[Rfam]
RNA sequence: GUGCCGGCUUGCCGGCUAUGGUGAUAAACGGGCGGUGUAAUAAACCCAUUGGACCCGGGGGCGGUACCCGGCGCCUCCACCAGAAACCGUUGAAAUGGCAACGUUUUCUGAUGGGGGCGAAAUAGGAUCGACAAGGGCGUAAAGAUCGACUUUUUACUCGGCAUUGUACCACCGUUAUCGGGCUAAACUUGUAGUUGCAAACGACAACUAUGCGGAAGCUCGUCUCGCUGCUUAAUCGCAGUGUGACACUUCAAAUCAAGUCCUUGCGGGUAGCACUGUAAGGCGGGGUUCGAAGGCACCUGGCAACAGAAGCCUUCACU
Numbered sequence: 001g002u003g004c005c006g007g008c009u010u011g012c013c014g015g016c017u018a019u020g021g022u023g024a025u026a027a028a029c030g031g032g033c034g035g036u037g038u039a040a041u042a043a044a045c046c047c048a049u050u051g052g053a054c055c056c057g058g059g060g061g062c063g064g065u066a067c068c069c070g071g072c073g074c075c076u077c078c079a080c081c082a083g084a085a086a087c088c089g090u091u092g093a094a095a096u097g098g099c100a101a102c103g104u105u106u107u108c109u110g111a112u113g114g115g116g117g118c119g120a121a122a123u124a125g126g127a128u129c130g131a132c133a134a135g136g137g138c139g140u141a142a143a144g145a146u147c148g149a150c151u152u153u154u155u156a157c158u159c160g161g162c163a164u165u166g167u168a169c170c171a172c173c174g175u176u177a178u179c180g181g182g183c184u185a186a187a188c189u190u191g192u193a194g195u196u197g198c199a200a201a202c203g204a205c206a207a208c209u210a211u212g213c214g215g216a217a218g219c220u221c222g223u224c225u226c227g228c229u230g231c232u233u234a235a236u237c238g239c240a241g242u243g244u245g246a247c248a249c250u251u252c253a254a255a256u257c258a259a260g261u262c263c264u265u266g267c268g269g270g271u272a273g274c275a276c277u278g279u280a281a282g283g284c285g286g287g288g289u290u291c292g293a294a295g296g297c298a299c300c301u302g303g304c305a306a307c308a309g310a311a312g313c314c315u316u317c318a319c320u
Stems, first nucleotide, its partner, number of pairs: 003016005020158005030151002033148004045137003049134003055071005072119007159174003164185001166183001169181002286301004292317006

Alphaproteobacteria transfer-messenger RNA: a 320-nucleotide RNA sequence.